[Rfam]
RNA sequence: UUAUCCUAUGCUAGUGUUACUUGUAUAAAUGCCGUAAUAUGGUCGGCAAGUUUCUACCCAAGGCCGUAAAUCUUGGACUAUGAGUAAGAAUAGCUAGGUU
Numbered sequence: 001u002u003a004u005c006c007u008a009u010g011c012u013a014g015u016g017u018u019a020c021u022u023g024u025a026u027a028a029a030u031g032c033c034g035u036a037a038u039a040u041g042g043u044c045g046g047c048a049a050g051u052u053u054c055u056a057c058c059c060a061a062g063g064c065c066g067u068a069a070a071u072c073u074u075g076g077a078c079u080a081u082g083a084g085u086a087a088g089a090a091u092a093g094c095u096a097g098g099u100u
Stems, first nucleotide, its partner, number of pairs: 018086008030048005058076006